[Rfam]
Rfam assigns this 97-nucleotide RNA sequence from Tatumella morbirosei to the family "Bacterial small signal recognition particle RNA". The literature on the family includes a 2009 paper in RNA Biol by Rosenblad et al., "Kinship in the SRP RNA family". The organism belongs to Tatumella, within Bacteria. The family is grouped with related families in Rfam's "SRP clan". The signal recognition particle (SRP) is a universally conserved ribonucleoprotein involved in the co-translational targeting of proteins to membranes. Rfam classes the family as a non-coding RNA gene. A search with the family's covariance model found it, with a score of 69 bits. Pairs were carried over by alignment from the consensus structure, which is taken from published work.
RNA sequence: UGCUGGUUCUCCCGCAAUGCUAACUUGUGAACCCGGUCAGAUCCGGAAGGAAGCAGCCGCAGCAGGUAACGCAUGUGCCGGGAUGUCGCUGGCAGAG
Numbered sequence: 001u002g003c004u005g006g007u008u009c010u011c012c013c014g015c016a017a018u019g020c021u022a023a024c025u026u027g028u029g030a031a032c033c034c035g036g037u038c039a040g041a042u043c044c045g046g047a048a049g050g051a052a053g054c055a056g057c058c059g060c061a062g063c064a065g066g067u068a069a070c071g072c073a074u075g076u077g078c079c080g081g082g083a084u085g086u087c088g089c090u091g092g093c094a095g096a097g
Base pairs, nucleotide, nucleotide: 004091005090006089007088010083011082012081013080014079015075017074018073019072020071023067024066025065026064027063028062034059035058036057037056042051043050044049